[Rfam]
RNA sequence: UGGUGACUUGAGGCUCCCUGGAUGUCACUCUGUCCCAACCCCUCCUGGCCCACGGGGCACAGGCUGAGUCCCAGAAAAGUCUGUGGGGCCCUGACCU
Numbered sequence: 001u002g003g004u005g006a007c008u009u010g011a012g013g014c015u016c017c018c019u020g021g022a023u024g025u026c027a028c029u030c031u032g033u034c035c036c037a038a039c040c041c042c043u044c045c046u047g048g049c050c051c052a053c054g055g056g057g058c059a060c061a062g063g064c065u066g067a068g069u070c071c072c073a074g075a076a077a078a079g080u081c082u083g084u085g086g087g088g089c090c091c092u093g094a095c096c097u
Stems, first nucleotide, its partner, number of pairs: 002096003005090001007088003011082005023073002027069004032064003039057004
Dot-bracket structure: .((((.(((.(((((.......((..((((.(((....((((...........))))....))).))))..))....)))))...))).)...))).
RNA: mir-8813 microRNA precursor family
Organism: Vulpes vulpes